[Rfam]
RNA sequence: GGGCCUGUAGCUCAAUGGUUAGAGCUGAGCGCUCAUAACGCUUAGGUUGGGGGUUCGAGUCCCUCCGGGCCUA
Numbered sequence: 001g002g003g004c005c006u007g008u009a010g011c012u013c014a015a016u017g018g019u020u021a022g023a024g025c026u027g028a029g030c031g032c033u034c035a036u037a038a039c040g041c042u043u044a045g046g047u048u049g050g051g052g053g054u055u056c057g058a059g060u061c062c063c064u065c066c067g068g069g070c071c072u073a
Base pairs, nucleotide, nucleotide: 001072002071003070004069005068006067007066010025011024012023013022027043028042029041030040031039049065050064051063052062053061
Dot-bracket structure: (((((((..((((........)))).(((((.......))))).....(((((.......)))))))))))).